[Rfam]
RNA: Bacterial small subunit ribosomal RNA, nucleotides 524 to 878
RNA sequence: GGCGUAAAGGGUGCGUAGGCGGUUCGGUAAGUCUUGUGUGAAAUCUUCGGGCUCAACUCGAAGUCUGCACUCGAAACUGCCGGGCUUGAGUAUGGGAGAGGUGAGUGGAAUUUCCGGUGUAGCGGUGAAAUGCGUAGAUAUCGGAAGGAACACCUGUGGCGAAAGCGGCUCACUGGACCAUAACUGACGCUGAUGCACGAAAGCUAGGGGAGCAAACAGGAUUAGAUACCCUGGUAGUCCUAGCCCUAAACGAUGAUCGCUUGGUGUGACGGGUACCCAAUCCCGCCGUGCCGAAGCUAACGCGUUAAGCGAUCCGCCUGGGGAGUACGGUCGCAAGGCUGAAACUCAAAGGAAU
Numbered sequence: 001g002g003c004g005u006a007a008a009g010g011g012u013g014c015g016u017a018g019g020c021g022g023u024u025c026g027g028u029a030a031g032u033c034u035u036g037u038g039u040g041a042a043a044u045c046u047u048c049g050g051g052c053u054c055a056a057c058u059c060g061a062a063g064u065c066u067g068c069a070c071u072c073g074a075a076a077c078u079g080c081c082g083g084g085c086u087u088g089a090g091u092a093u094g095g096g097a098g099a100g101g102u103g104a105g106u107g108g109a110a111u112u113u114c115c116g117g118u119g120u121a122g123c124g125g126u127g128a129a130a131u132g133c134g135u136a137g138a139u140a141u142c143g144g145a146a147g148g149a150a151c152a153c154c155u156g157u158g159g160c161g162a163a164a165g166c167g168g169c170u171c172a173c174u175g176g177a178c179c180a181u182a183a184c185u186g187a188c189g190c191u192g193a194u195g196c197a198c199g200a201a202a203g204c205u206a207g208g209g210g211a212g213c214a215a216a217c218a219g220g221a222u223u224a225g226a227u228a229c230c231c232u233g234g235u236a237g238u239c240c241u242a243g244c245c246c247u248a249a250a251c252g253a254u255g256a257u258c259g260c261u262u263g264g265u266g267u268g269a270c271g272g273g274u275a276c277c278c279a280a281u282c283c284c285g286c287c288g289u290g291c292c293g294a295a296g297c298u299a300a301c302g303c304g305u306u307a308a309g310c311g312a313u314c315c316g317c318c319u320g321g322g323g324a325g326u327a328c329g330g331u332c333g334c335a336a337g338g339c340u341g342a343a344a345c346u347c348a349a350a351g352g353a354a355u
Stems, first nucleotide, its partner, number of pairs: 001318003009315001011198004016192001018191003022085007030078002032074002036070005045063007089185003092181004100174007107151001111147008122133003159166002203244006212238002217233004255314006263292006270285004296303002320347003329340004